[Rfam]
The family of this 116-nucleotide RNA from Dichanthelium oligosanthes is "mir-393 microRNA precursor family". On this family, see Kruszka et al., J Plant Physiol 2012: "Role of microRNAs and other sRNAs of plants in their changing environments". It scores 82 bits against the family's covariance model.

RNA sequence: GGGGGAAGCAUCCAAAGGGAUCGCAUUGAUCCAUCAUUCCUUCCAUUCUUCCAUGGUGGCCGUCGUCUACAAGCACGGUUGACGACGGAUCAUGCGAUCCUUUUGGAGGCUUCCUC
Numbered sequence: 001g002g003g004g005g006a007a008g009c010a011u012c013c014a015a016a017g018g019g020a021u022c023g024c025a026u027u028g029a030u031c032c033a034u035c036a037u038u039c040c041u042u043c044c045a046u047u048c049u050u051c052c053a054u055g056g057u058g059g060c061c062g063u064c065g066u067c068u069a070c071a072a073g074c075a076c077g078g079u080u081g082a083c084g085a086c087g088g089a090u091c092a093u094g095c096g097a098u099c100c101u102u103u104u105g106g107a108g109g110c111u112u113c114c115u116c
Stems, first nucleotide, its partner, number of pairs: 002116005008110002011107011023095004028091005
The organism belongs to Dichanthelium, within Eukaryota. The family has 27 seed sequences and 1,052 matches in Rfam 15.1.